[Rfam]
RNA sequence: GAGAACUAGCAAUUUGAAAAGUCAAAUGAAAGGGUAACGCCUUGAAGGGCUUUCUUUAAUAUCCGAUUAGCAUAGGUAUAAUUAAGUAUAUCUUUGUUAAAAGCUCGGUGAAGUCGGCUGAGAGCUACCGUAAGUAGAAAUACACGAAAACUAUUCAGAGGUGAAUGGCGUAGCCUAUAGGUCGGAAGUCCAUAAA
Numbered sequence: 001g002a003g004a005a006c007u008a009g010c011a012a013u014u015u016g017a018a019a020a021g022u023c024a025a026a027u028g029a030a031a032g033g034g035u036a037a038c039g040c041c042u043u044g045a046a047g048g049g050c051u052u053u054c055u056u057u058a059a060u061a062u063c064c065g066a067u068u069a070g071c072a073u074a075g076g077u078a079u080a081a082u083u084a085a086g087u088a089u090a091u092c093u094u095u096g097u098u099a100a101a102a103g104c105u106c107g108g109u110g111a112a113g114u115c116g117g118c119u120g121a122g123a124g125c126u127a128c129c130g131u132a133a134g135u136a137g138a139a140a141u142a143c144a145c146g147a148a149a150a151c152u153a154u155u156c157a158g159a160g161g162u163g164a165a166u167g168g169c170g171u172a173g174c175c176u177a178u179a180g181g182u183c184g185g186a187a188g189u190c191c192a193u194a195a196a
Base pairs, nucleotide, nucleotide: 018053019052020051021050022049023048031043032042033041034040054188055187056186057185063108064107065106066105067100068099069098070097071096072095074093075092076091077090078089079088080087115184116183117182118181119180124174125173126172127171128170129146130145131144134143135142151168152167153166154165155164156163157162
RNA: Group II catalytic intron D1-D4-5
Organism: Clostridium magnum